[Rfam]
sodF sRNA: a 96-nucleotide RNA from Streptomyces diacarni. The match comes from Rfam's covariance-model search (67 bits). On this family, see Kim et al., Nucleic Acids Res 2014: "Inverse regulation of Fe- and Ni-containing SOD genes by a Fur family regulator Nur through small RNA processed from 3'UTR of the sodF mRNA". Its family is annotated with mRNA binding, regulation of mRNA stability and negative regulation of translation in the Gene Ontology.
RNA sequence: GCUUCCGUCCUCGUGAUCGUCUUCUCAACCUUCGCGGCGGGCGGGAGGAGAAAAGAGAGCGGCCCCCUGUGCGGACGUGACGCACAGGGGGCCGCU
Numbered sequence: 001g002c003u004u005c006c007g008u009c010c011u012c013g014u015g016a017u018c019g020u021c022u023u024c025u026c027a028a029c030c031u032u033c034g035c036g037g038c039g040g041g042c043g044g045g046a047g048g049a050g051a052a053a054a055g056a057g058a059g060c061g062g063c064c065c066c067c068u069g070u071g072c073g074g075a076c077g078u079g080a081c082g083c084a085c086a087g088g089g090g091g092c093c094g095c096u
Stems, first nucleotide, its partner, number of pairs: 002050002005044006013035004019029002058096016
Dot-bracket structure: .((.((((((..((((..((.......))..))))...))))))....)).......((((((((((((((((.......))))))))))))))))